[Rfam]
The family of this 106-nucleotide RNA sequence from Pseudolabrys sp. Root1462 is "Glycine riboswitch aptamer".

Nucleotides: 106
Stems, first nucleotide, its partner, number of pairs: 006101008020051007053086003056082002060080003066074002
Number, partner (000 for none) and nucleotide at each position: 001000u002000a003000u004000c005000a006101g007100u008099g009098a010097a011096c012095g013094g014000g015000a016000g017000a018000g019000a020051c021050u022049g023048a024047c025046g026045c027000g028000a029000a030000a031000g032000u033000g034000u035000a036000a037000c038000a039000a040000c041000u042000u043000g044000a045026g046025c047024g048023u049022u050021g051020g052000c053086g054085c055084c056082g057081a058000a059000g060080g061079a062078g063000c064000a065000a066074c067073c068000g069000c070000c071000c072000c073067g074066g075000a076000a077000u078062c079061u080060c081057u082056c083000a084055g085054g086053c087000a088000a089000a090000a091000g092000a093000a094013c095012c096011g097010u098009u099008c100007a101006u102000c103000a104000g105000g106000a
The organism belongs to Pseudolabrys, within Bacteria. About the family: This family represents the bacterial glycine riboswitch.